Rfam assigns this 105-nucleotide RNA from Pipistrellus kuhlii to the family "Vault RNA". By type it is a non-coding RNA gene. On this family, see Stadler et al., Mol Biol Evol 2009: "Evolution of Vault RNAs". Pairs were carried over by alignment from the consensus structure, which is taken from published work. The organism belongs to Pipistrellus, within Eukaryota. A search with the family's covariance model found it, with a score of 40 bits.

[Rfam]
RNA sequence: GGGCUGGCUUAGCUCAGCUGUUCCUUCUUCCUGUCAAAUCUUCACUUGCCAACCAACUCUUGCUUGCCAGGGUGGUUCCAGACCAGGGCACCUUCCAGCCCUUAA
Dot-bracket structure: .((((((....((((...((....((.....................................................))..)))))).....)))))).....
Numbered sequence: 001g002g003g004c005u006g007g008c009u010u011a012g013c014u015c016a017g018c019u020g021u022u023c024c025u026u027c028u029u030c031c032u033g034u035c036a037a038a039u040c041u042u043c044a045c046u047u048g049c050c051a052a053c054c055a056a057c058u059c060u061u062g063c064u065u066g067c068c069a070g071g072g073u074g075g076u077u078c079c080a081g082a083c084c085a086g087g088g089c090a091c092c093u094u095c096c097a098g099c100c101c102u103u104a105a
Stems, first nucleotide, its partner, number of pairs: 002100006012089004019085002025081002